[Rfam]
RNA sequence: GAGCUUGUUGACAUAGCGCACGGCCGGGGCAGGCUGCCAGAUUGUAAACUCGCCGUGAAUACGUCCUUGUAGGCUCGAUCCGCGCCAUCCCUGGCGCGGACGGUUU
Numbered sequence: 001g002a003g004c005u006u007g008u009u010g011a012c013a014u015a016g017c018g019c020a021c022g023g024c025c026g027g028g029g030c031a032g033g034c035u036g037c038c039a040g041a042u043u044g045u046a047a048a049c050u051c052g053c054c055g056u057g058a059a060u061a062c063g064u065c066c067u068u069g070u071a072g073g074c075u076c077g078a079u080c081c082g083c084g085c086c087a088u089c090c091c092u093g094g095c096g097c098g099g100a101c102g103g104u105u106u
Base pairs, nucleotide, nucleotide: 013106015104017102018101021026029076040065041064042063044062045061046060051055080099081098082097083096084095085094086093087092

Rfam assigns this 106-nucleotide RNA sequence from Sodalis ligni to the family "Yersinia sRNA 224". On this family, see Righetti et al., Proc Natl Acad Sci U S A 2016: "Temperature-responsive in vitro RNA structurome of Yersinia pseudotuberculosis". A search with the family's covariance model found it, with a score of 72 bits. Rfam 15.1 lists 130 matches to the family in 13 species. Rfam classes the family as a small RNA.